[Rfam]
RNA sequence: UAAGUAGAUAGAGGUGCGAUGUUAAUUAGUACUUUUACGAAGGUAAGCGCUAUGAAGUAAAAGGAAAGGGAAUAUCGCCGAAGUACACAGCUGAUGCUUUAAGGUUGUAUACUGGGGUUGCAUAGAAUAUGUGUAACACUGUCACAAAUUUAUUUUGUGGAGAGCUAUCAUUCAA
Numbered sequence: 001u002a003a004g005u006a007g008a009u010a011g012a013g014g015u016g017c018g019a020u021g022u023u024a025a026u027u028a029g030u031a032c033u034u035u036u037a038c039g040a041a042g043g044u045a046a047g048c049g050c051u052a053u054g055a056a057g058u059a060a061a062a063g064g065a066a067a068g069g070g071a072a073u074a075u076c077g078c079c080g081a082a083g084u085a086c087a088c089a090g091c092u093g094a095u096g097c098u099u100u101a102a103g104g105u106u107g108u109a110u111a112c113u114g115g116g117g118u119u120g121c122a123u124a125g126a127a128u129a130u131g132u133g134u135a136a137c138a139c140u141g142u143c144a145c146a147a148a149u150u151u152a153u154u155u156u157g158u159g160g161a162g163a164g165c166u167a168u169c170a171u172u173c174a175a
Stems, first nucleotide, its partner, number of pairs: 007169005016078008032063007082113004087108006114140002117137008142160007